A member of the RNA family "Bacterial RNase P class B" from Mesobacillus foraminis, 388 nucleotides long. By type it is a ribozyme. The family is grouped with related families in Rfam's "RNaseP clan". Rfam's curators write: Ribonuclease P (RNase P) is a ubiquitous endoribonuclease, found in archaea, bacteria and eukarya as well as chloroplasts and mitochondria. NCBI's taxonomy places the organism under Bacteria, Bacilli, Caryophanales, Bacillaceae, Mesobacillus.
RNA sequence: AAUGGUGGGUAAUCGCGGCUCAUGGAAACAUGAGUUGAGGAAAGUCCAGGCUCGCCCGGUGCUGAGAUGCCCGGAGUGUUCGUGCCAUCUGCAAAGAUGGGCAGCAGGCCAUGAUUCUGCUGACGGCGGUGAAAUUAGCUAAGUCCCUUGGGAUAUGCUGAAAUUAACCUUAAAGUGCCACAGUGACGAGUUCUUCUGGAAACGGAAGAAAUGGAACGAGGUAAACCCCGCGAGCGAGCAACCCAAACUUUGGUAGGGGCACCAUCCCGAGGGAAUAUAGAACCAAAAGGAUGGAUCGAUUGAACACACAAUCGAUAGUCAUAUGAUUACACCUGUUGUGCGAGAUUGGCAUCGUUUAGCACGCAGGAACAGAACCUGGCUUACAGCC
Numbered sequence: 001a002a003u004g005g006u007g008g009g010u011a012a013u014c015g016c017g018g019c020u021c022a023u024g025g026a027a028a029c030a031u032g033a034g035u036u037g038a039g040g041a042a043a044g045u046c047c048a049g050g051c052u053c054g055c056c057c058g059g060u061g062c063u064g065a066g067a068u069g070c071c072c073g074g075a076g077u078g079u080u081c082g083u084g085c086c087a088u089c090u091g092c093a094a095a096g097a098u099g100g101g102c103a104g105c106a107g108g109c110c111a112u113g114a115u116u117c118u119g120c121u122g123a124c125g126g127c128g129g130u131g132a133a134a135u136u137a138g139c140u141a142a143g144u145c146c147c148u149u150g151g152g153a154u155a156u157g158c159u160g161a162a163a164u165u166a167a168c169c170u171u172a173a174a175g176u177g178c179c180a181c182a183g184u185g186a187c188g189a190g191u192u193c194u195u196c197u198g199g200a201a202a203c204g205g206a207a208g209a210a211a212u213g214g215a216a217c218g219a220g221g222u223a224a225a226c227c228c229c230g231c232g233a234g235c236g237a238g239c240a241a242c243c244c245a246a247a248c249u250u251u252g253g254u255a256g257g258g259g260c261a262c263c264a265u266c267c268c269g270a271g272g273g274a275a276u277a278u279a280g281a282a283c284c285a286a287a288a289g290g291a292u293g294g295a296u297c298g299a300u301u302g303a304a305c306a307c308a309c310a311a312u313c314g315a316u317a318g319u320c321a322u323a324u325g326a327u328u329a330c331a332c333c334u335g336u337u338g339u340g341c342g343a344g345a346u347u348g349g350c351a352u353c354g355u356u357u358a359g360c361a362c363g364c365a366g367g368a369a370c371a372g373a374a375c376c377u378g379g380c381u382u383a384c385a386g387c388c
Base pairs, nucleotide, nucleotide: 004388005387006386007384009330010329011328012327013326014325016037017036018035019034020033021032042382043381044380046379047378048377049376050375051238052237053236054235055234056074057073058072059071061070062069080233081232082231083230084229085100086099087098088097089096090095101124102122103121104120105119106118107117125228126227128169129168130167136160137159138158139157143154144153145152175226176225177222178221179220191210192209193208194207195206196205197204198203242258243257244256262294263293264292265291266290267289295316296315297314298313299312300311301310302309333367334366337363338362339361340360341359